[Rfam]
RNA sequence: GAUACCCUUCCUACAAAUCAAACAAAUUAUCAUAAGACAAUCAAACCUAGGGAUCUG
Numbered sequence: 001g002a003u004a005c006c007c008u009u010c011c012u013a014c015a016a017a018u019c020a021a022a023c024a025a026a027u028u029a030u031c032a033u034a035a036g037a038c039a040a041u042c043a044a045a046c047c048u049a050g051g052g053a054u055c056u057g
Stems, first nucleotide, its partner, number of pairs: 001055003005051002

Shown here is a 57-nucleotide sequence from Cavenderia fasciculata, a member of the family "Class I RNA from Dictyostelium". Rfam describes the family as follows. Dictyostelium Class I RNA was first reported for Aspegren et al. 2004 in Dictyostelium discoideum. Sucgang et al. 2011 identify putative homologs of Class I RNA in D. discoideum and D. purpureum. Avesson et al. 2011 report that Class I RNA present a down regulation during the development of social amoeba Dictyostelium discoideum, they also found that deletion of one of the Class I RNAs, DdR-21, results in aberrant development. The family's RNA type in Rfam is non-coding RNA gene.